[Rfam]
RNA sequence: GGGGCGGAUAGGAACCAGGCAACUUUUGUGGGUUACUUGGGCCGAAAACCGCCGAGAUCAUAUAGGUAGUUUAAUGGUCGUAUGUGUCACUGACUGUGACAUGUAUAUUACCAAAUUACCAAACACAA
Numbered sequence: 001g002g003g004g005c006g007g008a009u010a011g012g013a014a015c016c017a018g019g020c021a022a023c024u025u026u027u028g029u030g031g032g033u034u035a036c037u038u039g040g041g042c043c044g045a046a047a048a049c050c051g052c053c054g055a056g057a058u059c060a061u062a063u064a065g066g067u068a069g070u071u072u073a074a075u076g077g078u079c080g081u082a083u084g085u086g087u088c089a090c091u092g093a094c095u096g097u098g099a100c101a102u103g104u105a106u107a108u109u110a111c112c113a114a115a116u117u118a119c120c121a122a123a124c125a126c127a128a
Stems, first nucleotide, its partner, number of pairs: 003053005011043002015040005021034005065120008076112003080106002083103008
Annotation: A member of the RNA family "Nematode snoRNA ceN39" from Oesophagostomum dentatum, 128 nucleotides long. Pairs were carried over by alignment from the consensus structure, which was predicted with RNAalifold. The organism belongs to Oesophagostomum, within Eukaryota. A reference for the family is Jia et al. (2007), "Systematic identification of non-coding RNA 2,2,7-trimethylguanosine cap structures in Caenorhabditis elegans", BMC Mol Biol. A search with the family's covariance model found it, with a score of 54 bits. It is annotated as an H/ACA-box small nucleolar RNA. Rfam 15.1 lists 95 matches to the family in 44 species.